[Rfam]
RNA: ASpks TB sRNA
Organism: Streptomyces zagrosensis
RNA sequence: CUUCAGCGAACCCAGCCACAGCGGCUCGUUACCCGCCGCCCGCCGCCCGUAGGUGGCCAGCAACGCCUCUGCCUC
Dot-bracket structure: .............((((.....)))).......((.....(((.(.(((....))).).)...))....))....
Numbered sequence: 001c002u003u004c005a006g007c008g009a010a011c012c013c014a015g016c017c018a019c020a021g022c023g024g025c026u027c028g029u030u031a032c033c034c035g036c037c038g039c040c041c042g043c044c045g046c047c048c049g050u051a052g053g054u055g056g057c058c059a060g061c062a063a064c065g066c067c068u069c070u071g072c073c074u075c
Stems, first nucleotide, its partner, number of pairs: 014026004034071002041065002043060001045058001047056003